[Rfam]
RNA sequence: UAGUUGCUGUGAUGAAUCAUGAAGCUAUCACAUGUCAGACUUCAGAGGUCUUUUCUCCUUGAAAAGAUCUAUGAGACAAACAUUCAUGUUUCUGAGCAGAAU
Numbered sequence: 001u002a003g004u005u006g007c008u009g010u011g012a013u014g015a016a017u018c019a020u021g022a023a024g025c026u027a028u029c030a031c032a033u034g035u036c037a038g039a040c041u042u043c044a045g046a047g048g049u050c051u052u053u054u055c056u057c058c059u060u061g062a063a064a065a066g067a068u069c070u071a072u073g074a075g076a077c078a079a080a081c082a083u084u085c086a087u088g089u090u091u092c093u094g095a096g097c098a099g100a101a102u
Base pairs, nucleotide, nucleotide: 004099005098006097007096047069048068049067050066051065052064053063054062055061

Background: Rfam assigns this 102-nucleotide RNA sequence from Carpinus fangiana to the family "Small nucleolar RNA R64/Z200 family". It scores 61 bits against the family's covariance model. The organism belongs to Carpinus, within Eukaryota.